This 344-nucleotide RNA from Ralstonia solanacearum belongs to the Rfam family "Bacterial RNase P class A". NCBI's taxonomy places the organism under Bacteria, Pseudomonadota, Burkholderiales, Burkholderiaceae, Ralstonia solanacearum. The family's consensus secondary structure is taken from published work.
RNA sequence: GAAGCGGACCAGGCAACCGCUGCUUCCACGUGUUCGCACGACGGAAGGGGAGGAAAGUCCGGACUCCACAGGGCAGGGUGAUGGCUAACGACCAUCCACGGUGACGUGCGGAAUAGGGCCACAGAGACGAGUCUUCGCCCGCGGCUUCGGCCGGGGCGAAGGGUGAAACGCGGUAACCUCCACCCGGAGCAAUCCCAAGUAAGCAGGCGAUGAAGCGGCCCGCCGAGCCUGCGGGUAGGGAGCUUGAGCUGGUCGGCAACGGCCGGUCUAGAGGAAUGGUUGUCACGCCGCGCGGUGUCAUGCCGCGCGGCGCACAGAAUCCGGCUUAUCGGUUCGCUUCGCGU
Number, nucleotide and partner (000 for none) at each position: 001g340002a339003a338004g337005c336006g335007g334008a333009c332010c331011a329012g284013g283014c282015a281016a280017c279018c278019g000020c050021u049022g000023c047024u046025u045026c044027c043028a000029c000030g000031u000032g000033u000034u000035c000036g000037c000038a000039c000040g000041a000042c000043g027044g026045a025046a024047g023048g000049g021050g020051a000052g000053g000054a000055a327056a326057g325058u000059c324060c323061g322062g321063a320064c189065u188066c187067c186068a000069c000070a000071g221072g220073g219074c218075a000076g185077g184078g183079u182080g181081a095082u094083g093084g092085c000086u000087a000088a000089c000090g000091a000092c084093c083094a082095u081096c110097c108098a107099c106100g105101g000102u000103g000104a000105c100106g099107u098108g097109c000110g096111g180112a179113a000114u000115a000116g178117g177118g174119c173120c172121a000122c000123a000124g000125a000126g000127a000128c000129g000130a000131g000132u000133c162134u161135u000136c158137g157138c156139c155140c154141g000142c153143g152144g151145c150146u000147u000148c000149g000150g145151c144152c143153g142154g140155g139156g138157c137158g136159a000160a000161g134162g133163g000164u000165g000166a000167a000168a000169c000170g000171c000172g120173g119174u118175a000176a000177c117178c116179u112180c111181c080182a079183c078184c077185c076186g067187g066188a065189g064190c000191a000192a000193u241194c240195c239196c238197a000198a000199g000200u000201a000202a000203g232204c231205a230206g229207g228208c227209g000210a000211u000212g000213a000214a000215g223216c222217g000218g074219c073220c072221c071222g216223c215224c000225g000226a000227g208228c207229c206230u205231g204232c203233g000234g000235g000236u000237a000238g196239g195240g194241a193242g000243c000244u000245u000246g000247a000248g267249c266250u265251g264252g263253u262254c261255g260256g000257c000258a000259a000260c255261g254262g253263c252264c251265g250266g249267u248268c000269u000270a000271g000272a000273g000274g000275a000276a000277u000278g018279g017280u016281u015282g014283u013284c012285a000286c000287g000288c000289c000290g000291c000292g000293c000294g000295g000296u000297g000298u000299c000300a000301u000302g000303c000304c000305g000306c000307g000308c000309g000310g000311c000312g000313c000314a000315c000316a000317g000318a000319a000320u063321c062322c061323g060324g059325c057326u056327u055328a000329u011330c000331g010332g009333u008334u007335c006336g005337c004338u003339u002340c001341g000342c000343g000344u000